[Rfam]
A member of the RNA family "RNA Staph. aureus E (RoxS)" from Bacillus sp. V5-8f, 117 nucleotides long. Rfam's curators write: It was shown to be regulated by the presence of nitric oxide (NO). NCBI's taxonomy places the organism under Bacteria, Bacillati, Caryophanales, Bacillaceae, Bacillus. The family's RNA type in Rfam is small RNA. A search with the family's covariance model found it, with a score of 101 bits. Its family is annotated with regulation of translational initiation in the Gene Ontology. For this family Rfam cites "A nitric oxide regulated small RNA controls expression of genes involved in redox homeostasis in Bacillus subtilis" (Durand et al., PLoS Genet, 2015).
Nucleotides: 117
Stems, first nucleotide, its partner, number of pairs: 003056006011048004018041006072083001087114011
Number, partner (000 for none) and nucleotide at each position: 001000g002000u003056g004055a005054a006053g007052u008051u009000g010000a011048u012047c013046a014045c015000a016000a017000g018041c019040a020039a021038a022037c023036a024000c025000a026000u027000a028000c029000c030000c031000c032000u033000u034000u035000u036023u037022g038021u039020u040019u041018g042000a043000c044000c045014g046013u047012g048011a049000a050000a051008a052007a053006u054005u055004u056003c057000u058000c059000c060000c061000a062000u063000c064000c065000c066000c067000u068000u069000u070000g071000u072083u073000c074000g075000u076000a077000u078000g079000a080000a081000u082000a083072g084000a085000a086000a087114a088113g089112c090111c091110u092109u093108g094107c095106a096105a097104a098000u099000a100000g101000u102000u103000g104097u105096u106095u107094g108093c109092a110091a111090g112089g113088c114087u115000u116000u117000u